Rfam assigns this 86-nucleotide RNA sequence from Rhododendron simsii to the family "Small nucleolar RNA SNORD34".
Rfam classes the family as a C/D-box small nucleolar RNA.
The organism belongs to Rhododendron, within Eukaryota.

RNA sequence: UGAGGCCUAUGAUGAAUUUGAACAUUUGCCGACAUCGUCUGAUUGUUCAUGACGGAGAAUUUGGAACUGUACCUUCUGAGGCCACU
Number, nucleotide and partner (000 for none) at each position: 001u000002g085003a000004g083005g082006c081007c080008u000009a000010u000011g000012a000013u000014g000015a000016a000017u000018u000019u000020g000021a000022a000023c000024a000025u000026u000027u000028g000029c000030c000031g000032a000033c000034a000035u000036c000037g000038u000039c000040u000041g000042a000043u000044u000045g000046u000047u000048c000049a000050u000051g000052a000053c000054g000055g000056a000057g000058a000059a000060u000061u000062u000063g000064g000065a000066a000067c000068u000069g000070u000071a000072c000073c000074u000075u000076c000077u000078g000079a000080g007081g006082c005083c004084a000085c002086u000
For this family Rfam cites "Purified box C/D snoRNPs are able to reproduce site-specific 2'-O-methylation of target RNA in vitro" (Galardi et al., Mol Cell Biol, 2002). Rfam links the family to the GO terms nucleolus and RNA processing.